[Rfam]
RNA sequence: AGAACGUGCCUUUUAGGCAUCCUCUCCCAAAACUUUCAAAGCCCGGCUGGCAACAGCCGGGUUUUUUUUGUCUUUCU
Numbered sequence: 001a002g003a004a005c006g007u008g009c010c011u012u013u014u015a016g017g018c019a020u021c022c023u024c025u026c027c028c029a030a031a032a033c034u035u036u037c038a039a040a041g042c043c044c045g046g047c048u049g050g051c052a053a054c055a056g057c058c059g060g061g062u063u064u065u066u067u068u069u070g071u072c073u074u075u076c077u
Stems, first nucleotide, its partner, number of pairs: 008018004041062009
The family of this 77-nucleotide sequence from Allopontixanthobacter sediminis is "Makes More Granules Regulator RNA (mmgR)". The base pairs follow the family's consensus structure. It scores 50 bits against the family's covariance model. Its Rfam clan is "suhB sRNA clan". Rfam's curators write: SuhB later renamed mmgR (makes more granules regulator) was a putative non-coding RNA found multiple times in the Agrobacterium tumefaciens genome and related alpha-proteobacteria. Other non-coding RNAs uncovered in the same analysis include: speF, ybhL, metA, and serC.Several studies inSinorhizobium meliloti showed that suhB element is indeed a non-coding RNA:firstly it was detected on Northern blot and called Sm8RNA, secondly in an RNAseq study referred to as SmelC689.The mutant phenotype's (strain lacking the small RNA) cytoplasm contains higher content of polyhydroxybutyrate (PBH)storage granules than wild type strain.